RNA sequence: UGAAGACUGUUCCUCCUAUGGCCCUCAGGCCUGGCGCUAGGAUUUUAGGUCAUCAUAAAUUAAAAUUGACUUUCUUCACUCAGAGGAUAUAAGGAUAAUGGGUUUAUCUGUCUAUGCGCUGAGAUUUGUAGAAUGGAACACUU
Numbered sequence: 001u002g003a004a005g006a007c008u009g010u011u012c013c014u015c016c017u018a019u020g021g022c023c024c025u026c027a028g029g030c031c032u033g034g035c036g037c038u039a040g041g042a043u044u045u046u047a048g049g050u051c052a053u054c055a056u057a058a059a060u061u062a063a064a065a066u067u068g069a070c071u072u073u074c075u076u077c078a079c080u081c082a083g084a085g086g087a088u089a090u091a092a093g094g095a096u097a098a099u100g101g102g103u104u105u106a107u108c109u110g111u112c113u114a115u116g117c118g119c120u121g122a123g124a125u126u127u128g129u130a131g132a133a134u135g136g137a138a139c140a141c142u143u
Base pairs, nucleotide, nucleotide: 001055002054003053005051006050007049008048014042015041016040017039018038021035022034023033069134071132072131073130080122081121082120083119085117087115088114089113093109094108095107096106097105
The family of this 143-nucleotide RNA sequence from Fukomys damarensis is "Small nucleolar RNA SNORA79". Rfam links the family to the GO terms RNA processing and nucleolus. Rfam's curators write: ACA65 (SNORA79) is a member of the H/ACA class of snoRNAs that guide the sites of modification of uridines to pseudouridines. The organism belongs to Fukomys, within Eukaryota.